[Rfam]
RNA sequence: AAGGAGCAAGAAGCCCCCUUUUGAUAUAACAAAAAAGGGCUUCUUGCUCCUUAUAU
Numbered sequence: 001a002a003g004g005a006g007c008a009a010g011a012a013g014c015c016c017c018c019u020u021u022u023g024a025u026a027u028a029a030c031a032a033a034a035a036a037g038g039g040c041u042u043c044u045u046g047c048u049c050c051u052u053a054u055a056u
Stems, first nucleotide, its partner, number of pairs: 001052013019034005